Shown here is a 92-nucleotide RNA from Cellulomonas pakistanensis, a member of the family "ZMP/ZTP riboswitch aptamer (pfl RNA motif)".
RNA sequence: GUGCCCGGUCGUGACUGGCGUCGAGGUGGAACUGACCACCAGGGAGCGGCCGAGGCAGUCCCGCCGAUGCACCGUCCGCCUGGGUGCAGGGU
Dot-bracket structure: ...(.(((((((..(([[[[.....((((......))))..))..))))))).)..............(((((...]]]]..))))).....
Numbered sequence: 001g002u003g004c005c006c007g008g009u010c011g012u013g014a015c016u017g018g019c020g021u022c023g024a025g026g027u028g029g030a031a032c033u034g035a036c037c038a039c040c041a042g043g044g045a046g047c048g049g050c051c052g053a054g055g056c057a058g059u060c061c062c063g064c065c066g067a068u069g070c071a072c073c074g075u076c077c078g079c080c081u082g083g084g085u086g087c088a089g090g091g092u
Stems, first nucleotide, its partner, number of pairs: 004054001006052007015043002017080004026039004069087005
Record summary: The family's consensus secondary structure is taken from published work. NCBI's taxonomy places the organism under Bacteria, Bacillati, Actinomycetes, Micrococcales, Cellulomonas.